[Rfam]
A member of the RNA family "MIR398 microRNA precursor family" from Arabidopsis lyrata, 103 nucleotides long. The match comes from Rfam's covariance-model search (72 bits). For this family Rfam cites "Computational identification of plant microRNAs and their targets, including a stress-induced miRNA" (Jones-Rhoades and Bartel, Mol Cell, 2004). The base pairs follow the family's consensus structure, which was predicted with WAR.
RNA sequence: UGGAUCUCGACAGGGUUGAUAUGAGGACACAUGUGUAAUCAACGGCUGUAAUGACGCCACGUCAUUGUUACAUGUGUUCUCAGGUCACCCCUGCUGAGCUCUU
Numbered sequence: 001u002g003g004a005u006c007u008c009g010a011c012a013g014g015g016u017u018g019a020u021a022u023g024a025g026g027a028c029a030c031a032u033g034u035g036u037a038a039u040c041a042a043c044g045g046c047u048g049u050a051a052u053g054a055c056g057c058c059a060c061g062u063c064a065u066u067g068u069u070a071c072a073u074g075u076g077u078u079c080u081c082a083g084g085u086c087a088c089c090c091c092u093g094c095u096g097a098g099c100u101c102u103u
Stems, first nucleotide, its partner, number of pairs: 007097002011093004017087003023081010